[Rfam]
RNA sequence: GAGAACUAAUAUUCCGAUAGGUGGAAUGAAGGGGUAACGCCCUGAAACGCCUACCUUAUAAACUGCGAUAUGCGGCAGUCCUCUGUAACAAGGGCUACGGUAUAACGCUCGCUAAAGUCGGCGGAAAUGCACCCAAACGGAUUAUGCCGUGGAAAGUGUCCCAGAGGUGGGAUAUGUGCAUGAUACGCCGGAGGUCUAUAAA
Numbered sequence: 001g002a003g004a005a006c007u008a009a010u011a012u013u014c015c016g017a018u019a020g021g022u023g024g025a026a027u028g029a030a031g032g033g034g035u036a037a038c039g040c041c042c043u044g045a046a047a048c049g050c051c052u053a054c055c056u057u058a059u060a061a062a063c064u065g066c067g068a069u070a071u072g073c074g075g076c077a078g079u080c081c082u083c084u085g086u087a088a089c090a091a092g093g094g095c096u097a098c099g100g101u102a103u104a105a106c107g108c109u110c111g112c113u114a115a116a117g118u119c120g121g122c123g124g125a126a127a128u129g130c131a132c133c134c135a136a137a138c139g140g141a142u143u144a145u146g147c148c149g150u151g152g153a154a155a156g157u158g159u160c161c162c163a164g165a166g167g168u169g170g171g172a173u174a175u176g177u178g179c180a181u182g183a184u185a186c187g188c189c190g191g192a193g194g195u196c197u198a199u200a201a202a
Stems, first nucleotide, its partner, number of pairs: 018053006031043004054194004065112004069104005075098001077096006119190005127181006133152003139148002156175008

Group II catalytic intron D1-D4-5: a 202-nucleotide RNA sequence from Subdoligranulum variabile. A reference for the family is Bonen and Vogel (2001), "The ins and outs of group II introns", Trends Genet. From the family's description: Group II introns are found in rRNA, tRNA and mRNA of organelles in fungi, plants and protists, and also in mRNA in bacteria.